[Rfam]
RNA sequence: GCAGACUCAAAGCCGCGAUUGCUCGUUCCGUCCAGGACUUUGUUCCACACUCACGAGCGGGCCAAGGUCUGAGUAUUUUAGUCGCCCUCGCUCGGUUCUAGCGGGACCACCCCGUUACAGGGCAACGGGUACAAGAAAUUCGCCACUCGCACUCCCUUGAUGGAUGCUGGCUUGGAAUCCUCGUGGCGACGGCAUACCCCACUUUCCUUCCGGCGUCGCUGGGCGCUGGUAGGGUAGAAGAGUGGUGGUACGCUUGAGUGCACUUCGCGGCUCGCAAUUCGGCCUGUUUGCUCACGCGAACAGCCUGCGAAACUCGAUUCAGACUACUCUUUGUCUGC
Numbered sequence: 001g002c003a004g005a006c007u008c009a010a011a012g013c014c015g016c017g018a019u020u021g022c023u024c025g026u027u028c029c030g031u032c033c034a035g036g037a038c039u040u041u042g043u044u045c046c047a048c049a050c051u052c053a054c055g056a057g058c059g060g061g062c063c064a065a066g067g068u069c070u071g072a073g074u075a076u077u078u079u080a081g082u083c084g085c086c087c088u089c090g091c092u093c094g095g096u097u098c099u100a101g102c103g104g105g106a107c108c109a110c111c112c113c114g115u116u117a118c119a120g121g122g123c124a125a126c127g128g129g130u131a132c133a134a135g136a137a138a139u140u141c142g143c144c145a146c147u148c149g150c151a152c153u154c155c156c157u158u159g160a161u162g163g164a165u166g167c168u169g170g171c172u173u174g175g176a177a178u179c180c181u182c183g184u185g186g187c188g189a190c191g192g193c194a195u196a197c198c199c200c201a202c203u204u205u206c207c208u209u210c211c212g213g214c215g216u217c218g219c220u221g222g223g224c225g226c227u228g229g230u231a232g233g234g235u236a237g238a239a240g241a242g243u244g245g246u247g248g249u250a251c252g253c254u255u256g257a258g259u260g261c262a263c264u265u266c267g268c269g270g271c272u273c274g275c276a277a278u279u280c281g282g283c284c285u286g287u288u289u290g291c292u293c294a295c296g297c298g299a300a301c302a303g304c305c306u307g308c309g310a311a312a313c314u315c316g317a318u319u320c321a322g323a324c325u326a327c328u329c330u331u332u333g334u335c336u337g338c
Stems, first nucleotide, its partner, number of pairs: 001338004009331002014270001021058005035045004069322005081190004094108005110122003114118001123186001125184005142171003272310005
RNA: Nuclear RNase P
Organism: Mycena chlorophos